[Rfam]
The family of this 305-nucleotide RNA sequence from Quiscalus mexicanus is "7SK RNA". The base pairs follow the family's consensus structure, which is taken from published work. Rfam describes the family as follows. 7SK was discovered as an abundant small nuclear RNA in the mid-70s but a possible function has only recently been suggested. The source organism's lineage runs through Eukaryota, Bilateria, Telluraves, Passeroidea and Quiscalus. By type it is a non-coding RNA gene.
Nucleotides: 305
Base pairs, nucleotide, nucleotide: 001089002088003087006084011081016079017078018077019076020075021074022073023072024071025070027066028065029062030061031060034059036057037056039053093147094146096143097142098141099116100115101114102113104112124134125133126132177247178246179245183241184240186238187237188236189235190234191233198229199228200227201226204224205223207221208220270305271304272303274300275299276298277297279293280292281291283289
Number, partner (000 for none) and nucleotide at each position: 001089g002088g003087g004000c005000a006084a007000u008000c009000u010000g011081g012000c013000u014000a015000u016079g017078a018077u019076a020075u021074c022073u023072g024071u025070c026000a027066c028065c029062c030061c031060a032000c033000u034059g035000c036057u037056c038000u039053c040000c041000a042000g043000g044000c045000u046000u047000g048000a049000u050000u051000c052000a053039g054000c055000u056037g057036a058000u059034c060031u061030g062029g063000c064000u065028g066027g067000c068000a069000a070025g071024g072023u073022g074021g075020g076019u077018g078017u079016c080000c081011c082000a083000a084006u085000g086000c087003u088002c089001c090000a091000u092000g093147u094146c095000c096143c097142u098141c099116c100115u101114g102113a103000a104112g105000c106000u107000g108000c109000a110000c111000a112104c113102u114101c115100a116099g117000u118000c119000a120000c121000a122000g123000a124134g125133g126132a127000u128000g129000a130000c131000a132126u133125c134124c135000c136000c137000a138000c139000u140000a141098g142097a143096g144000a145000u146094g147093g148000u149000a150000c151000c152000a153000u154000u155000c156000a157000u158000c159000a160000g161000u162000c163000a164000a165000g166000g167000g168000u169000a170000c171000a172000c173000a174000g175000c176000a177247g178246c179245u180000g181000c182000a183241c184240u185000c186238c187237c188236c189235u190234g191233c192000c193000a194000c195000a196000g197000c198229c199228u200227c201226c202000a203000a204224a205223c206000c207221a208220g209000c210000u211000c212000a213000a214000g215000g216000u217000c218000c219000a220208u221207u222000u223205g224204u225000a226201g227200g228199a229198g230000a231000a232000u233191g234190u235189a236188g237187g238186g239000u240184a241183g242000u243000c244000a245179a246178g247177c248000u249000u250000c251000c252000a253000a254000g255000g256000c257000u258000g259000c260000a261000g262000a263000c264000a265000c266000a267000u268000c269000c270305a271304a272303g273000u274300g275299a276298g277297g278000u279293g280292c281291u282000c283289c284000a285000u286000a287000g288000g289283g290000c291281a292280g293279u294000u295000u296000u297277c298276c299275u300274u301000u302000u303272u304271u305270u